[Rfam]
RNA sequence: GUGCAGCUCGACGGGGGGCCGUUGCACUGUAAGAGAUUGAGUAGCAGGAUCUCACAGUGAACCGGUCUCUUUUCUGGCUGCUCC
Numbered sequence: 001g002u003g004c005a006g007c008u009c010g011a012c013g014g015g016g017g018g019c020c021g022u023u024g025c026a027c028u029g030u031a032a033g034a035g036a037u038u039g040a041g042u043a044g045c046a047g048g049a050u051c052u053c054a055c056a057g058u059g060a061a062c063c064g065g066u067c068u069c070u071u072u073u074c075u076g077g078c079u080g081c082u083c084c
Stems, first nucleotide, its partner, number of pairs: 006078003010074001015069007025059006033053003

A member of the RNA family "mir-128 microRNA precursor family" from Megalops atlanticus, 84 nucleotides long. The family has 57 seed sequences and 1,337 matches in Rfam 15.1. A reference for the family is Chen et al. (2005), "The developmental miRNA profiles of zebrafish as determined by small RNA cloning", Genes Dev. It scores 80 bits against the family's covariance model. The organism belongs to Megalops, within Eukaryota. Its family is annotated with RISC complex and miRNA-mediated post-transcriptional gene silencing in the Gene Ontology. The family's consensus secondary structure was predicted with RNAalifold.